[Rfam]
RNA sequence: AGAUCAGAAGGUGAUUGUGGCUUUGGGUGGAUAUUAAUCAGCCACAGCACUGCCUGGUCAGA
Numbered sequence: 001a002g003a004u005c006a007g008a009a010g011g012u013g014a015u016u017g018u019g020g021c022u023u024u025g026g027g028u029g030g031a032u033a034u035u036a037a038u039c040a041g042c043c044a045c046a047g048c049a050c051u052g053c054c055u056g057g058u059c060a061g062a
Base pairs, nucleotide, nucleotide: 002059003058004057005056006055007054010051011050012049013048015047016046017045018044019043020042021041022040023037024036025035026034

Overview
The family of this 62-nucleotide RNA sequence from Canis lupus is "mir-383 microRNA precursor family". The sequence is in the family's curated seed alignment. The family's consensus secondary structure was predicted with RNAalifold. Gene Ontology terms of the family: RISC complex and miRNA-mediated post-transcriptional gene silencing. The organism belongs to Canis lupus, within Eukaryota.